[Rfam]
RNA: Guanidine-II riboswitch aptamer (mini-ykkC)
Organism: Rhizobium sp. BK251
RNA sequence: GGACCGGGACGGCCCGGCACUCAACGGUCGAUAGCCGGGACGACCCGG
Numbered sequence: 001g002g003a004c005c006g007g008g009a010c011g012g013c014c015c016g017g018c019a020c021u022c023a024a025c026g027g028u029c030g031a032u033a034g035c036c037g038g039g040a041c042g043a044c045c046c047g048g
Base pairs, nucleotide, nucleotide: 002018004017005016006015007014008013035048036047037046038045039044